[Rfam]
RNA sequence: GGGGGCGACCUGGUUUCGACAGGGGUUGCGAAGCGGCUAGGGCAUGUCGAGGACCCGUCACCUCGUUAAUCAAUGGGAAAAACGUAACUGCAAACGACGAUACGUUCGCACUGGCAGCCUAACGGCCGCCGUCCUCUGCCUAGUUCACUGACGGGCUAGUGUCGCAAGACCGGUAGCAAUACCGCCAGAGGUCAUAUACGUCAGUUAAGCCCUGCCGGCGCCGCGACGGCAGGGUCGAAAACCUAGCGGAUCGCCGUCCCGCAGCGUGUUCGUCCGCGACGUGGCGGUUAAAUCAAAAGACUGAACUAAACAUGUAGAACUGGUCGUGGACCGCUUCUGGACGCGGGUUCGAUUCCCGCCGUCUCCACCA
Numbered sequence: 001g002g003g004g005g006c007g008a009c010c011u012g013g014u015u016u017c018g019a020c021a022g023g024g025g026u027u028g029c030g031a032a033g034c035g036g037c038u039a040g041g042g043c044a045u046g047u048c049g050a051g052g053a054c055c056c057g058u059c060a061c062c063u064c065g066u067u068a069a070u071c072a073a074u075g076g077g078a079a080a081a082a083c084g085u086a087a088c089u090g091c092a093a094a095c096g097a098c099g100a101u102a103c104g105u106u107c108g109c110a111c112u113g114g115c116a117g118c119c120u121a122a123c124g125g126c127c128g129c130c131g132u133c134c135u136c137u138g139c140c141u142a143g144u145u146c147a148c149u150g151a152c153g154g155g156c157u158a159g160u161g162u163c164g165c166a167a168g169a170c171c172g173g174u175a176g177c178a179a180u181a182c183c184g185c186c187a188g189a190g191g192u193c194a195u196a197u198a199c200g201u202c203a204g205u206u207a208a209g210c211c212c213u214g215c216c217g218g219c220g221c222c223g224c225g226a227c228g229g230c231a232g233g234g235u236c237g238a239a240a241a242c243c244u245a246g247c248g249g250a251u252c253g254c255c256g257u258c259c260c261g262c263a264g265c266g267u268g269u270u271c272g273u274c275c276g277c278g279a280c281g282u283g284g285c286g287g288u289u290a291a292a293u294c295a296a297a298a299g300a301c302u303g304a305a306c307u308a309a310a311c312a313u314g315u316a317g318a319a320c321u322g323g324u325c326g327u328g329g330a331c332c333g334c335u336u337c338u339g340g341a342c343g344c345g346g347g348u349u350c351g352a353u354u355c356c357c358g359c360c361g362u363c364u365c366c367a368c369c370a
Base pairs, nucleotide, nucleotide: 001366002365003364004363005362006361007360020339021338022337023336024335025334026333028331033327034326035325036324037323038322039321040320043314044313045312046311047310048065049064050063051062052061054077055076056075057074058073110132111131113130114129115128117126118125133191134190135189136188137187138186146161147160148159151205152204154202155201156200210234211233212232213231214230215229216228221249222248223247224246253288254287255286256285257284258283260281261280264277265276266275268306269305270304271303272301273300274299343359344358345357346356347355
Dot-bracket structure: (((((((............(((((((.(....((((((((..((((((((((.[[[[[..))))).......]]]]]................................((.(((.((......)).)))))((((((.......(((..[[.[[[..)))........................))))))........]]].]]....(((((((....[[[[...)))))))...........]]]]...((((((.((..(((.[[[[[[[)))..)).))))))..........]]].]]]]...))))).....))))))))...).)))))))...(((((.......))))))))))))....